This 193-nucleotide RNA sequence from Castor canadensis belongs to the Rfam family "Small nucleolar RNA SNORA73 family". U17 (SNORA73A and SNORA73B) also known as E1 belongs to the H/ACA class of small nucleolar RNAs (snoRNAs). Vertebrate U17 is intron-encoded and ranges in length from 200-230 nucleotides, longer than most snoRNAs. It is one of the most abundant snoRNAs in human cells and is essential for the cleavage of pre-rRNA within the 5' external transcribed spacer (ETS). Rfam 15.1 lists 2,326 matches to the family in 660 species. Gene Ontology terms of the family: RNA processing and nucleolus. Its Rfam clan is "snR30-U17 clan". It scores 106 bits against the family's covariance model. The family's consensus secondary structure is taken from published work.

[Rfam]
RNA sequence: CAAGUUUUCAGUAUAGAGCCCUGUCCUCUGUUCAAGCGCCAUGGGAGAGCAUAGCACUCUGUUCCAUGGUAUACAGUUCCUCUCCACAAGGUUUGAGAAGAAGCUGAGCCUUAAGUCUGCAUCUGCACUUUCCUACAACUUCUCAGGGUCCUGUGGACAGUGACUGAGGAAGCAAACCAUGCAGGAAACAGGC
Numbered sequence: 001c002a003a004g005u006u007u008u009c010a011g012u013a014u015a016g017a018g019c020c021c022u023g024u025c026c027u028c029u030g031u032u033c034a035a036g037c038g039c040c041a042u043g044g045g046a047g048a049g050c051a052u053a054g055c056a057c058u059c060u061g062u063u064c065c066a067u068g069g070u071a072u073a074c075a076g077u078u079c080c081u082c083u084c085c086a087c088a089a090g091g092u093u094u095g096a097g098a099a100g101a102a103g104c105u106g107a108g109c110c111u112u113a114a115g116u117c118u119g120c121a122u123c124u125g126c127a128c129u130u131u132c133c134u135a136c137a138a139c140u141u142c143u144c145a146g147g148g149u150c151c152u153g154u155g156g157a158c159a160g161u162g163a164c165u166g167a168g169g170a171a172g173c174a175a176a177c178c179a180u181g182c183a184g185g186a187a188a189c190a191g192g193c
Base pairs, nucleotide, nucleotide: 001090004037005036006035007034009030010029011028013024014023015022016021042086043085044084045080047078048077049074051072052071053070054067122185123184124183125182126181127180140170141169142168143167144166148158149157150156151155
By type it is an H/ACA-box small nucleolar RNA.